Shown here is a 46-nucleotide RNA from Lactuca sativa, a member of the family "Plastid-rpl16 group II-D1 intron".
The match comes from Rfam's covariance-model search (50 bits).
Plastid-rpl16 is a non-coding RNA (ncRNA) recognised in plastids. It was recognised in and intronic region of a ribosome rpl16 gene.
The organism belongs to Lactuca, within Eukaryota.
RNA sequence: AAGAACUUCGAGCCAAUAAGGCUAAGAAUAUUGACUCAAAAACUAA
Numbered sequence: 001a002a003g004a005a006c007u008u009c010g011a012g013c014c015a016a017u018a019a020g021g022c023u024a025a026g027a028a029u030a031u032u033g034a035c036u037c038a039a040a041a042a043c044u045a046a
Stems, first nucleotide, its partner, number of pairs: 007040002010037003014033004